[Rfam]
RNA sequence: CACGACAAGGGCAAACCUGCCGCGAGGCAGGGACGCAAAGCCAUGGGACCCACGCGGUCCGCCAGGCUACCGAAA
Numbered sequence: 001c002a003c004g005a006c007a008a009g010g011g012c013a014a015a016c017c018u019g020c021c022g023c024g025a026g027g028c029a030g031g032g033a034c035g036c037a038a039a040g041c042c043a044u045g046g047g048a049c050c051c052a053c054g055c056g057g058u059c060c061g062c063c064a065g066g067c068u069a070c071c072g073a074a075a
Base pairs, nucleotide, nucleotide: 003072004071011036012035016031017030018029019028020027021026034061039068040067041066042065044064045063046062047059048058049057
Dot-bracket structure: ..((......((...((((((....))))))..[))..((((.((((((.......))).])))))))..))...
The family of this 75-nucleotide sequence from Cellulomonas aerilata is "c-di-GMP-I-GGC riboswitch aptamer". The match comes from Rfam's covariance-model search (70 bits). The literature on the family includes a 2009 paper in Nat Struct Mol Biol by Smith et al., "Structural basis of ligand binding by a c-di-GMP riboswitch". NCBI's taxonomy places the organism under Bacteria, Bacillati, Actinomycetota, Actinomycetes, Cellulomonas.